[Rfam]
RNA sequence: CAGGCGUGAUGAGGAUGAAAAGUUUUAUGUUUCUGAUUUCAAGUGAUUGAAUCAAAACCUCCUACUCAUUCUGA
Numbered sequence: 001c002a003g004g005c006g007u008g009a010u011g012a013g014g015a016u017g018a019a020a021a022g023u024u025u026u027a028u029g030u031u032u033c034u035g036a037u038u039u040c041a042a043g044u045g046a047u048u049g050a051a052u053c054a055a056a057a058c059c060u061c062c063u064a065c066u067c068a069u070u071c072u073g074a
Base pairs, nucleotide, nucleotide: 006069007068008067009066031050032049
This 74-nucleotide RNA from Kalanchoe fedtschenkoi belongs to the Rfam family "Small nucleolar RNA Z105". NCBI's taxonomy places the organism under Eukaryota, Streptophyta, Euphyllophyta, Gunneridae, Kalanchoe. The family has 11 seed sequences and 621 matches in Rfam 15.1. On this family, see Chen et al., Nucleic Acids Res 2003: "The high diversity of snoRNAs in plants: identification and comparative study of 120 snoRNA genes from Oryza sativa".